[Rfam]
RNA sequence: ACGACAUUCGGAUGGUUGGUCCAGCGAGCAAUAUCACCCGCUCGGUGGUAGAUCUUCUCUUCAUCGU
Numbered sequence: 001a002c003g004a005c006a007u008u009c010g011g012a013u014g015g016u017u018g019g020u021c022c023a024g025c026g027a028g029c030a031a032u033a034u035c036a037c038c039c040g041c042u043c044g045g046u047g048g049u050a051g052a053u054c055u056u057c058u059c060u061u062c063a064u065c066g067u
Stems, first nucleotide, its partner, number of pairs: 004064001010058003015053003021048003025044005
RNA: mir-2774 microRNA precursor family